Iron response element I: a 35-nucleotide RNA sequence from Rhinopithecus roxellana. Rfam 15.1 lists 6,829 matches to the family in 599 species. The literature on the family includes a 2002 paper in Insect Biochem Mol Biol by Nichol and Winzerling, "Structured RNA upstream of insect cap distal iron responsive elements enhances iron regulatory protein-mediated control of translation".
[Rfam]
RNA sequence: GGGUUUCCUGCUUCAACAGCGCUUGGACGGAACCG
Dot-bracket structure: ..(.((((.(.((((((...).)))))))))).).
The organism belongs to Rhinopithecus, within Eukaryota.
Pairs were carried over by alignment from the consensus structure, which is taken from published work.
The family's RNA type in Rfam is cis-regulatory element.